[Rfam]
RNA sequence: GCACCCGAUCUUCCCUGGGACGUGGCCAGUUGGACAUCUUCCUGCUGCUUCGUGCUGGUCUGGGGACAGAUGGUGCUACACUAUGAGCAGAGGAUAUCCAGACGGGUUGUUUUCCAUUUGUCUUGGGACCUGUCUCUACAACUCUGCCACAUUU
Numbered sequence: 001g002c003a004c005c006c007g008a009u010c011u012u013c014c015c016u017g018g019g020a021c022g023u024g025g026c027c028a029g030u031u032g033g034a035c036a037u038c039u040u041c042c043u044g045c046u047g048c049u050u051c052g053u054g055c056u057g058g059u060c061u062g063g064g065g066a067c068a069g070a071u072g073g074u075g076c077u078a079c080a081c082u083a084u085g086a087g088c089a090g091a092g093g094a095u096a097u098c099c100a101g102a103c104g105g106g107u108u109g110u111u112u113u114c115c116a117u118u119u120g121u122c123u124u125g126g127g128a129c130c131u132g133u134c135u136c137u138a139c140a141a142c143u144c145u146g147c148c149a150c151a152u153u154u
Base pairs, nucleotide, nucleotide: 001076002075003074004073005072012066013065014064015063016062017061018060021057087147088146089145090144091143092142100135101134102133103132104131105130106129107128114126115125116124
Rfam assigns this 154-nucleotide sequence from Spermophilus dauricus to the family "Small nucleolar RNA SNORA55". Rfam 15.1 lists 1,476 matches to the family in 616 species. The base pairs follow the family's consensus structure, which was predicted with PFOLD. It is annotated as an H/ACA-box small nucleolar RNA. About the family: ACA55 is a member of the H/ACA class of snoRNA that guide the sites of modification of uridines to pseudouridines. The organism belongs to Spermophilus, within Eukaryota.